[Rfam]
RNA sequence: UUUGGGAAGUGAUGAUAAGAUAUAUCGAUAUGGCAUAGGCACAUGCAAUGCUGAACAAUAUAUAUUUGCACGUCAGUCUGAUCCCUUA
Numbered sequence: 001u002u003u004g005g006g007a008a009g010u011g012a013u014g015a016u017a018a019g020a021u022a023u024a025u026c027g028a029u030a031u032g033g034c035a036u037a038g039g040c041a042c043a044u045g046c047a048a049u050g051c052u053g054a055a056c057a058a059u060a061u062a063u064a065u066u067u068g069c070a071c072g073u074c075a076g077u078c079u080g081a082u083c084c085c086u087u088a
Stems, first nucleotide, its partner, number of pairs: 001088001004085004
The family of this 88-nucleotide RNA sequence from Arabidopsis lyrata is "Small nucleolar RNA Z122". The family has 23 seed sequences and 822 matches in Rfam 15.1. It is annotated as a C/D-box small nucleolar RNA. Gene Ontology terms of the family: nucleolus and RNA processing. Lineage of the source: Eukaryota > Brassicales > Camelineae > Arabidopsis > Arabidopsis lyrata. The literature on the family includes a 2003 paper in Nucleic Acids Res by Chen et al., "The high diversity of snoRNAs in plants: identification and comparative study of 120 snoRNA genes from Oryza sativa".